[Rfam]
RNA sequence: CUUGCACACAACCCAAAAAGACCAACCAUCACCCAUGGGUUUGUCCUUUGUCAAGUGUGCAUACAGUAGAUACAUCUUGUCGCCUGUUGCAGACGCCACGUGUUUGCGAGAGUGGAAAUUUAAGAUGUCACAUGU
Numbered sequence: 001c002u003u004g005c006a007c008a009c010a011a012c013c014c015a016a017a018a019a020g021a022c023c024a025a026c027c028a029u030c031a032c033c034c035a036u037g038g039g040u041u042u043g044u045c046c047u048u049u050g051u052c053a054a055g056u057g058u059g060c061a062u063a064c065a066g067u068a069g070a071u072a073c074a075u076c077u078u079g080u081c082g083c084c085u086g087u088u089g090c091a092g093a094c095g096c097c098a099c100g101u102g103u104u105u106g107c108g109a110g111a112g113u114g115g116a117a118a119u120u121u122a123a124g125a126u127g128u129c130a131c132a133u134g135u
Base pairs, nucleotide, nucleotide: 003061004060005059006058007057008056009055018047020045021044022043024041025040026039027038072128073127074126075125076124077123078122084112085111087109088108089107090106091105092104093103094102

Notes
The record is a 135-nucleotide RNA from Eptatretus burgeri, which matches "Small nucleolar RNA SNORA68" in Rfam. Taxonomically the source falls in Eptatretus (Eukaryota, Deuterostomia, Cyclostomata, Myxiniformes). A search with the family's covariance model found it, with a score of 61 bits. Rfam 15.1 lists 1,079 matches to the family in 643 species. The literature on the family includes a 1997 paper in Genes Dev by Ganot et al., "The family of box ACA small nucleolar RNAs is defined by an evolutionarily conserved secondary structure and ubiquitous sequence elements essential for RNA accumulation". Rfam describes the family as follows. U68 is a member of the H/ACA class of small nucleolar RNAs (snoRNAs) which act as guides in the the modification of uridines to pseudouridines.